Overview:
The record is a 159-nucleotide RNA sequence from Gossypium gossypioides, which matches "U12 minor spliceosomal RNA" in Rfam. Clan: U2 clan. Its family is annotated with pre-mRNA branch point binding, U12 snRNP and mRNA branch site recognition in the Gene Ontology. The match comes from Rfam's covariance-model search (91 bits). The source organism's lineage runs through Eukaryota, Euphyllophyta, Malvaceae, Malvoideae and Gossypium. For this family Rfam cites "The divergent U12-type spliceosome is required for pre-mRNA splicing and is essential for development in Drosophila" (Otake et al., Mol Cell, 2002).
[Rfam]
Nucleotides: 159
Stems, first nucleotide, its partner, number of pairs: 004023005032053008054076005093159002099156005105150001108144001110142001112140003120136005
Number, partner (000 for none) and nucleotide at each position: 001000u002000u003000g004023c005022c006021u007020u008019a009000a010000a011000c012000u013000a014000a015000u016000g017000a018000g019008u020007a021006a022005g023004g024000a025000a026000a027000a028000c029000a030000a031000a032053g033052c034051g035050a036049g037048c038047g039046g040000u041000g042000g043000g044000a045000g046039c047038u048037g049036c050035u051034c052033g053032c054076c055075g056074c057073g058072c059000c060000c061000g062000a063000a064000c065000c066000u067000a068000u069000a070000a071000g072058g073057u074056g075055c076054g077000c078000a079000a080000g081000a082000a083000u084000u085000u086000g087000u088000g089000g090000a091000g092000g093159g094158g095000u096000a097000a098000u099156a100155g101154g102153c103152u104000g105150g106000c107000c108144g109000a110142g111000u112140g113139u114138u115000g116000a117000c118000g119000c120136u121135g122134c123133a124132c125000u126000u127000a128000c129000u130000u131000u132124g133123u134122g135121c136120a137000g138114a139113a140112c141000u142110c143000a144108c145000u146000u147000g148000u149000g150105c151000g152103g153102g154101c155100c156099u157000c158094c159093c